[Rfam]
RNA: Bacterial large subunit ribosomal RNA, nucleotides 1309 to 1690
RNA sequence: GAAAGACGGGUGAGAAUCCCGUCCACCGAUUGACUAAGGUUUCCAGAGGAAGGCUCGUCCGCUCUGGGUUAGUCGGGUCCUAAGCUGAGGCCGACAGGCGUAGGCGAUGGAUAACAGGUUGAUAUUCCUGUACCACUUAGUAUCGUUUUAAUCGAUGGGGGGACGCAGUAGGAUAGGCGAAGCGUGCUGUUGGAGUGCACGUCUAAGCAGUAAGGCUGAGUGUUAGGCAAAUCCGGCACUCAUCAGGCUAAGCUGUGAUGGGGAGAGGAAAUUGUUUCCUCGAGUCGUUGAUUUCACACUGCCGAGAAAAGCCUCUAGAUAGAUAACAGGUGCCCGUACCGCAAACCGACACAGGUAGUCAAGAUGAGAAUUCUAAGGUGAG
Numbered sequence: 001g002a003a004a005g006a007c008g009g010g011u012g013a014g015a016a017u018c019c020c021g022u023c024c025a026c027c028g029a030u031u032g033a034c035u036a037a038g039g040u041u042u043c044c045a046g047a048g049g050a051a052g053g054c055u056c057g058u059c060c061g062c063u064c065u066g067g068g069u070u071a072g073u074c075g076g077g078u079c080c081u082a083a084g085c086u087g088a089g090g091c092c093g094a095c096a097g098g099c100g101u102a103g104g105c106g107a108u109g110g111a112u113a114a115c116a117g118g119u120u121g122a123u124a125u126u127c128c129u130g131u132a133c134c135a136c137u138u139a140g141u142a143u144c145g146u147u148u149u150a151a152u153c154g155a156u157g158g159g160g161g162g163a164c165g166c167a168g169u170a171g172g173a174u175a176g177g178c179g180a181a182g183c184g185u186g187c188u189g190u191u192g193g194a195g196u197g198c199a200c201g202u203c204u205a206a207g208c209a210g211u212a213a214g215g216c217u218g219a220g221u222g223u224u225a226g227g228c229a230a231a232u233c234c235g236g237c238a239c240u241c242a243u244c245a246g247g248c249u250a251a252g253c254u255g256u257g258a259u260g261g262g263g264a265g266a267g268g269a270a271a272u273u274g275u276u277u278c279c280u281c282g283a284g285u286c287g288u289u290g291a292u293u294u295c296a297c298a299c300u301g302c303c304g305a306g307a308a309a310a311g312c313c314u315c316u317a318g319a320u321a322g323a324u325a326a327c328a329g330g331u332g333c334c335c336g337u338a339c340c341g342c343a344a345a346c347c348g349a350c351a352c353a354g355g356u357a358g359u360c361a362a363g364a365u366g367a368g369a370a371u372u373c374u375a376a377g378g379u380g381a382g
Stems, first nucleotide, its partner, number of pairs: 005023006024380004032360004038340002043067006052060002074336004079110002084105003088101001090099003114131005134332005141325004152319002157315004165302004171295003176289005182202006203261002207256004214249003218241007226234002265281006346355002362374003